[Rfam]
RNA sequence: UCCGAUAAUGGCAAACUUAUCGAAAGGUAAGGACGCAAAGCUAUAGGGCCUUUCGCAAAAUGGCAGCCUAGCUACCGAAU
Numbered sequence: 001u002c003c004g005a006u007a008a009u010g011g012c013a014a015a016c017u018u019a020u021c022g023a024a025a026g027g028u029a030a031g032g033a034c035g036c037a038a039a040g041c042u043a044u045a046g047g048g049c050c051u052u053u054c055g056c057a058a059a060a061u062g063g064c065a066g067c068c069u070a071g072c073u074a075c076c077g078a079a080u
Stems, first nucleotide, its partner, number of pairs: 003077002011036002016031006034066001039073004045069003048064003
RNA: c-di-GMP-I-GGC riboswitch aptamer
Organism: Clostridium thailandense